U12 minor spliceosomal RNA: a 147-nucleotide RNA sequence from Protopolystoma xenopodis. It is annotated as a spliceosomal small nuclear RNA. The pairing is the family consensus, mapped onto this sequence. The family is grouped with related families in Rfam's "U2 clan". On this family, see Tarn and Steitz, Trends Biochem Sci 1997: "Pre-mRNA splicing: the discovery of a new spliceosome doubles the challenge". A search with the family's covariance model found it, with a score of 85 bits.
RNA sequence: AUGCCUUAAACUAAUGAGUAAGGAAAAUAACGGAUCGGUGUGAUUGCCGAACCAUUGGCAUUCGCCAUUCGAUUUUUUUCAGGGCAAAGGUUGCCCCGCUGUGCCGCCCUACUUAAGGCGGUGCGGGAAGGCGUAGCUGCCUGCCCA
Numbered sequence: 001a002u003g004c005c006u007u008a009a010a011c012u013a014a015u016g017a018g019u020a021a022g023g024a025a026a027a028u029a030a031c032g033g034a035u036c037g038g039u040g041u042g043a044u045u046g047c048c049g050a051a052c053c054a055u056u057g058g059c060a061u062u063c064g065c066c067a068u069u070c071g072a073u074u075u076u077u078u079u080c081a082g083g084g085c086a087a088a089g090g091u092u093g094c095c096c097c098g099c100u101g102u103g104c105c106g107c108c109c110u111a112c113u114u115a116a117g118g119c120g121g122u123g124c125g126g127g128a129a130g131g132c133g134u135a136g137c138u139g140c141c142u143g144c145c146c147a
Base pairs, nucleotide, nucleotide: 004023005022006021007020008019032053033052035050036049037048038047039046056067057066058065059064082146083145084144085143088142089141090140091139093137094136096131097130099126100125101124102123103122104121105120106119107118108117